[Rfam]
RNA: Bacterial large subunit ribosomal RNA, nucleotides 2014 to 2600
RNA sequence: CCCGCACCUAGACGGAAAGACCCCGUGAACCUUUACUAUAGCUUGGCACUGAACAUUGACCCUACAUGUGUAGGAUAGGUGGGAGACAUUGAAGAUGAGACGCCAGUCUUGUUGGAGUCGUCCUUGAAAUACCACCCUUGUAGGUUUGAUGUUCUAACAUUGGUCCCUUAUCGGGAUUGUGGACAGUGUCUGGUGGGUAGUUUGACUGGGGCGGUCUCCUCCCAAAGCGUAACGGAGGAGCACGAAGGUUGGCUAAUCCUGGUCGGACAUCAGGAGGUUAGUGCAAUGGCAUAAGCCAGCUUAACUGCGAGACAGACACGUCGAGCAGGUACGAAAGUAGGUCAUAGUGAUCCGGUGGUUCUGAAUGGAAGGGCCAUCGCUCAACGGAUAAAAGGUACUCCGGGGAUAACAGGCUGAUACCGCCCAAGAGUUCAUAUCGACGGCGGUGUUUGGCACCUCGAUGUCGGCUCAUCACAUCCUGGGGCUGAAGUCGGUCCCAAGGGUAUGGCUGUUCGCCAUUUAAAGUGGUACGCGAGCUGGGUUUAGAACGUCGUGAGACAGUUCGGUCCCUAUCUGGUGUGGGCGUU
Numbered sequence: 001c002c003c004g005c006a007c008c009u010a011g012a013c014g015g016a017a018a019g020a021c022c023c024c025g026u027g028a029a030c031c032u033u034u035a036c037u038a039u040a041g042c043u044u045g046g047c048a049c050u051g052a053a054c055a056u057u058g059a060c061c062c063u064a065c066a067u068g069u070g071u072a073g074g075a076u077a078g079g080u081g082g083g084a085g086a087c088a089u090u091g092a093a094g095a096u097g098a099g100a101c102g103c104c105a106g107u108c109u110u111g112u113u114g115g116a117g118u119c120g121u122c123c124u125u126g127a128a129a130u131a132c133c134a135c136c137c138u139u140g141u142a143g144g145u146u147u148g149a150u151g152u153u154c155u156a157a158c159a160u161u162g163g164u165c166c167c168u169u170a171u172c173g174g175g176a177u178u179g180u181g182g183a184c185a186g187u188g189u190c191u192g193g194u195g196g197g198u199a200g201u202u203u204g205a206c207u208g209g210g211g212c213g214g215u216c217u218c219c220u221c222c223c224a225a226a227g228c229g230u231a232a233c234g235g236a237g238g239a240g241c242a243c244g245a246a247g248g249u250u251g252g253c254u255a256a257u258c259c260u261g262g263u264c265g266g267a268c269a270u271c272a273g274g275a276g277g278u279u280a281g282u283g284c285a286a287u288g289g290c291a292u293a294a295g296c297c298a299g300c301u302u303a304a305c306u307g308c309g310a311g312a313c314a315g316a317c318a319c320g321u322c323g324a325g326c327a328g329g330u331a332c333g334a335a336a337g338u339a340g341g342u343c344a345u346a347g348u349g350a351u352c353c354g355g356u357g358g359u360u361c362u363g364a365a366u367g368g369a370a371g372g373g374c375c376a377u378c379g380c381u382c383a384a385c386g387g388a389u390a391a392a393a394g395g396u397a398c399u400c401c402g403g404g405g406a407u408a409a410c411a412g413g414c415u416g417a418u419a420c421c422g423c424c425c426a427a428g429a430g431u432u433c434a435u436a437u438c439g440a441c442g443g444c445g446g447u448g449u450u451u452g453g454c455a456c457c458u459c460g461a462u463g464u465c466g467g468c469u470c471a472u473c474a475c476a477u478c479c480u481g482g483g484g485c486u487g488a489a490g491u492c493g494g495u496c497c498c499a500a501g502g503g504u505a506u507g508g509c510u511g512u513u514c515g516c517c518a519u520u521u522a523a524a525g526u527g528g529u530a531c532g533c534g535a536g537c538u539g540g541g542u543u544u545a546g547a548a549c550g551u552c553g554u555g556a557g558a559c560a561g562u563u564c565g566g567u568c569c570c571u572a573u574c575u576g577g578u579g580u581g582g583g584c585g586u587u
Stems, first nucleotide, its partner, number of pairs: 001583008010575003014570002022404004027400002029396005035201004042193002045190004051154009061144006068137001078136005085119003094113008158181003162178006204216004217239006240385001242342002248300006254280002257275006281290002305328004311322003330339003353379007361372002413454003417451001418448007428438002465540001466538004470532001471529005478503002481498006505519005546564004550559003